[Rfam]
RNA: Small Cajal body specific RNA 8
Organism: Pleuronectes platessa
RNA sequence: UGGGAGGCAGAUACCUGGGCAGUUCUGAUCUGUGAUCUGUCCGUCACUAGUCCUCCCUAGAACAUACGUGCUCUCUGAUGACCGAGGCGAAUUGAGAGAAAUCGCCACGGACAGAUACGGAGCAGAUACAU
Numbered sequence: 001u002g003g004g005a006g007g008c009a010g011a012u013a014c015c016u017g018g019g020c021a022g023u024u025c026u027g028a029u030c031u032g033u034g035a036u037c038u039g040u041c042c043g044u045c046a047c048u049a050g051u052c053c054u055c056c057c058u059a060g061a062a063c064a065u066a067c068g069u070g071c072u073c074u075c076u077g078a079u080g081a082c083c084g085a086g087g088c089g090a091a092u093u094g095a096g097a098g099a100a101a102u103c104g105c106c107a108c109g110g111a112c113a114g115a116u117a118c119g120g121a122g123c124a125g126a127u128a129c130a131u
Stems, first nucleotide, its partner, number of pairs: 002057006016043003022037001024035002067125001069124006082110003087105004